The family of this 127-nucleotide RNA from Virgibacillus salinus is "Ribosomal protein L20 leader". From the family's description: This family is a putative r-protein leader autoregulatory structure found in B. subtilis and other low-GC Gram-positive bacteria. NCBI's taxonomy places the organism under Bacteria, Bacillati, Caryophanales, Bacillaceae, Virgibacillus. The family's RNA type in Rfam is cis-regulatory leader. Pairs were carried over by alignment from the consensus structure, which was predicted with CMfinder.
[Rfam]
RNA sequence: UGAGACAAGUAGAAGCACCCGCUUCUCACCUGUUUGACGCAUUCGUGCAGUUGACUGGUUUUGAACUCUUUUAAUAGACUAAUGGAGACGUGUGGGUGCAAUAUUGUACCUACACGUUUUUUAAUUC
Number, nucleotide and partner (000 for none) at each position: 001u000002g000003a000004g000005a000006c000007a000008a000009g000010u000011a026012g025013a024014a023015g022016c021017a000018c000019c000020c000021g016022c015023u014024u013025c012026u011027c000028a059029c058030c057031u000032g000033u000034u000035u000036g052037a051038c050039g048040c047041a000042u000043u000044c000045g000046u000047g040048c039049a000050g038051u037052u036053g000054a000055c000056u000057g030058g029059u028060u000061u000062u000063g000064a000065a000066c000067u000068c000069u000070u000071u000072u000073a000074a000075u000076a000077g000078a000079c000080u000081a000082a000083u000084g000085g000086a000087g000088a000089c000090g000091u114092g113093u112094g111095g110096g109097u108098g107099c106100a105101a000102u000103a000104u000105u100106g099107u098108a097109c096110c095111u094112a093113c092114a091115c000116g000117u000118u000119u000120u000121u000122u000123a000124a000125u000126u000127c000